MIR530 microRNA precursor family: a 234-nucleotide RNA sequence from Pyrus ussuriensis x Pyrus communis. A search with the family's covariance model found it, with a score of 95 bits. The organism belongs to Pyrus, within Eukaryota. Its family is annotated with miRNA-mediated post-transcriptional gene silencing and RISC complex in the Gene Ontology. Pairs were carried over by alignment from the consensus structure, which was predicted with WAR.

[Rfam]
RNA sequence: GCCAAAAUGUUGCUUUUAUCUGCAUUUGCACCUGCACUUGUGCUCGUUCAUGUUUCUUCCUUCCUUGAAAAACCAUAAAACCAAAGCUUCAGAGAAUGGAAAGGGUUUUAGAUAUAUGAGAGCAACAAAGACAAGAGGAAAGGAAUAAGGGAAACGAAGGAAAAUGGAAAUCAGAAGGAAGAGGAGGAACAAGCAAGAGGUGCAGGUGCCAGUGCAGGUGAAUGCCAUUUUGGU
Dot-bracket structure: (((((((((..((.((((((((((((.((((((((((((...............(.((((((.............................................................................)))))).)..................................................)))))))))))).)))))))))))).)))))))))))